The record is a 127-nucleotide RNA sequence from [Eubacterium] brachy, which matches "FMN riboswitch aptamer (RFN element)" in Rfam. Rfam's curators write: The RFN element is a highly conserved domain that is found frequently in the 5'-untranslated regions of prokaryotic mRNAs that encode for flavin mononucleotide (FMN) biosynthesis and transport proteins. This element is a metabolite-dependent riboswitch that directly binds FMN in the absence of proteins. In Bacillus subtilis, the riboswitch most likely controls gene expression by causing premature transcription termination within the 5' untranslated region of the ribDEAHT operon and precluding access to the ribosome-binding site of ypaA mRNA.The FMN riboswitch structure, reported in present an FMN-bound six-stem junction, adopts a butterfly-like scaffold, stapled together by opposingly directed but nearly identically folded peripheral domains. The base pairs follow the family's consensus structure, which is taken from published work.
[Rfam]
RNA sequence: AAUCUGUUUCAGGGCGAGGUGCGAUUCCUCACCGGUGGUAAUUGUAAAGCAUAAGUCCACGAGCCAAGCGGCUGAACUGGUGUGAUUCCAGUACCGACGGUCACAGUCCGGAUGAGAGAAACCAGAU
Numbered sequence: 001a002a003u004c005u006g007u008u009u010c011a012g013g014g015c016g017a018g019g020u021g022c023g024a025u026u027c028c029u030c031a032c033c034g035g036u037g038g039u040a041a042u043u044g045u046a047a048a049g050c051a052u053a054a055g056u057c058c059a060c061g062a063g064c065c066a067a068g069c070g071g072c073u074g075a076a077c078u079g080g081u082g083u084g085a086u087u088c089c090a091g092u093a094c095c096g097a098c099g100g101u102c103a104c105a106g107u108c109c110g111g112a113u114g115a116g117a118g119a120a121a122c123c124a125g126a127u
Stems, first nucleotide, its partner, number of pairs: 003125001006122005017029003031107002033096002035060004055094002063072003076092005098110003